[Rfam]
This 110-nucleotide RNA sequence from Theropithecus gelada belongs to the Rfam family "Y RNA". A reference for the family is Mosig et al. (2007), "Evolution of the vertebrate Y RNA cluster", Theory Biosci. By type it is a non-coding RNA gene. The match comes from Rfam's covariance-model search (62 bits). Y RNAs are components of the Ro ribonucleoprotein particle (Ro RNP), in association with Ro60 and La proteins. The Y RNAs and Ro60 and La proteins are well conserved, but the function of the Ro RNP is not known.

RNA sequence: GGCUGGUCUGAAGGUAGUGGAUAACUCAAUUGAUUGUUCAGUCAGUUAUAGAUUGAGCUCCUUGUUUUACUCCUUCUCCCAUUCUCACUACUGCACUUGACUAGCAUUAA
Numbered sequence: 001g002g003c004u005g006g007u008c009u010g011a012a013g014g015u016a017g018u019g020g021a022u023a024a025c026u027c028a029a030u031u032g033a034u035u036g037u038u039c040a041g042u043c044a045g046u047u048a049u050a051g052a053u054u055g056a057g058c059u060c061c062u063u064g065u066u067u068u069a070c071u072c073c074u075u076c077u078c079c080c081a082u083u084c085u086c087a088c089u090a091c092u093g094c095a096c097u098u099g100a101c102u103a104g105c106a107u108u109a110a
Stems, first nucleotide, its partner, number of pairs: 002105007010098002014094002016089005041071001044068002